The family of this 43-nucleotide sequence from Peribacillus asahii is "PreQ1 (pre queuosine) riboswitch aptamer". This family is a bacterial riboswitch that binds to the metabolite preQ1, an intermediate in the biosynthesis of the modified nucleoside queuosine from GTP. One example of this riboswitch is located in the leader of the Bacillus subtilis ykvJKLM (queCDEF) operon which encodes four genes necessary for queuosine production. PreQ1 binding to the riboswitch aptamer is thought to induce premature transcription termination within the leader to down-regulate expression of these genes.
[Rfam]
RNA sequence: GCAGAAGAGGUUCUAGCUACCCUCUUUAAAAAACUAAGAAGAA
Numbered sequence: 001g002c003a004g005a006a007g008a009g010g011u012u013c014u015a016g017c018u019a020c021c022c023u024c025u026u027u028a029a030a031a032a033a034c035u036a037a038g039a040a041g042a043a
Stems, first nucleotide, its partner, number of pairs: 006025005014036002
For this family Rfam cites "Identification of four genes necessary for biosynthesis of the modified nucleoside queuosine" (Reader et al., J Biol Chem, 2004). A search with the family's covariance model found it, with a score of 46 bits. Taxonomically the source falls in Peribacillus (Bacteria, Bacillati, Bacillota, Bacilli). The base pairs follow the family's consensus structure.